The family of this 79-nucleotide RNA sequence from [Clostridium] cellulosi is "S10-Clostridia ribosomal protein leader". The match comes from Rfam's covariance-model search (47 bits).

RNA sequence: GAUAUGCGAUGAAGCGGGAGGUUGCCGCCUUGAGCGGGUAAUUUCCGCAGAGUAUGUCCGAUUUUAAACCGGGCGACAC
Numbered sequence: 001g002a003u004a005u006g007c008g009a010u011g012a013a014g015c016g017g018g019a020g021g022u023u024g025c026c027g028c029c030u031u032g033a034g035c036g037g038g039u040a041a042u043u044u045c046c047g048c049a050g051a052g053u054a055u056g057u058c059c060g061a062u063u064u065u066a067a068a069c070c071g072g073g074c075g076a077c078a079c
Stems, first nucleotide, its partner, number of pairs: 014048003018045004025037004055078004062073003
By type it is a cis-regulatory leader.
NCBI's taxonomy places the organism under Bacteria, Bacillati, Clostridia, Eubacteriales, Ruminiclostridium.